[Rfam]
Nucleotides: 105
Base pairs, nucleotide, nucleotide: 006101007100008099009098010097011096012095013094014093015092018090019089020088021087022086023085024084025083026082
Number, partner (000 for none) and nucleotide at each position: 001000a002000u003000u004000g005000c006101c007100c008099g009098c010097u011096c012095u013094c014093c015092c016000u017000c018090a019089a020088g021087g022086g023085c024084u025083u026082c027000c028000g029000u030000a031000u032000u033000u034000c035000g036000c037000c038000u039000u040000g041000c042000a043000u044000a045000u046000c047000a048000g049000u050000c051000a052000u053000u054000g055000a056000u057000u058000u059000c060000u061000c062000g063000c064000u065000u066000u067000c068000u069000u070000a071000c072000g073000g074000c075000g076000g077000a078000a079000a080000c081000c082026g083025a084024g085023g086022u087021c088020c089019u090018u091000a092015g093014g094013g095012a096011g097010a098009g099008u100007g101006g102000a103000u104000a105000a